Record summary:
The record is an 86-nucleotide RNA sequence from Solanum tuberosum, which matches "MIR8024 microRNA precursor family" in Rfam.
RNA sequence: UCGUAAGAUUUGAAGACUUCAACUUGUAUACUUAAAGAAUUUGAAGACAUCAACUUGUAUAAUUGAAGGAUUUGAAGACUUCGAUU
Numbered sequence: 001u002c003g004u005a006a007g008a009u010u011u012g013a014a015g016a017c018u019u020c021a022a023c024u025u026g027u028a029u030a031c032u033u034a035a036a037g038a039a040u041u042u043g044a045a046g047a048c049a050u051c052a053a054c055u056u057g058u059a060u061a062a063u064u065g066a067a068g069g070a071u072u073u074g075a076a077g078a079c080u081u082c083g084a085u086u
Base pairs, nucleotide, nucleotide: 001084002083003082005080009076010075011074012073013072014071017068018067019066020065021064025059026058027057028056032053033052035050037048
Gene Ontology terms of the family: miRNA-mediated post-transcriptional gene silencing and RISC complex. The organism belongs to Solanum, within Eukaryota. The match comes from Rfam's covariance-model search (79 bits). Rfam 15.1 lists 661 matches to the family in 8 species. The family's consensus secondary structure was predicted with RNAalifold.